[Rfam]
RNA sequence: CAGCAUGUUUCCAAGGGCUGUGUCUGGGUGUAGCCACGGGUUCUCCAACUGCAUGUGAGAGCAACCUGGAGAGACUUUGACAGCUCAGGCUAGCAUAAUACCUGCAGCGGCCACUCACCCUUCCUAGAUAU
Numbered sequence: 001c002a003g004c005a006u007g008u009u010u011c012c013a014a015g016g017g018c019u020g021u022g023u024c025u026g027g028g029u030g031u032a033g034c035c036a037c038g039g040g041u042u043c044u045c046c047a048a049c050u051g052c053a054u055g056u057g058a059g060a061g062c063a064a065c066c067u068g069g070a071g072a073g074a075c076u077u078u079g080a081c082a083g084c085u086c087a088g089g090c091u092a093g094c095a096u097a098a099u100a101c102c103u104g105c106a107g108c109g110g111c112c113a114c115u116c117a118c119c120c121u122u123c124c125u126a127g128a129u130a131u
Base pairs, nucleotide, nucleotide: 011039012038016035017034018033019032020031021030022029068124069123070122071121073119083111084110086104087103088102089101

Shown here is a 131-nucleotide RNA from Myotis brandtii, a member of the family "Small nucleolar RNA SNORA44". It is annotated as an H/ACA-box small nucleolar RNA. Taxonomically the source falls in Myotis (Eukaryota, Dipnotetrapodomorpha, Tetrapoda, Chiroptera). Pairs were carried over by alignment from the consensus structure, which was predicted with PFOLD. From the family's description: ACA44 is a member of the H/ACA class of snoRNA that guide the sites of modification of uridines to pseudouridines. The literature on the family includes a 2001 paper in EMBO J by Huttenhofer et al., "RNomics: an experimental approach that identifies 201 candidates for novel, small, non-messenger RNAs in mouse".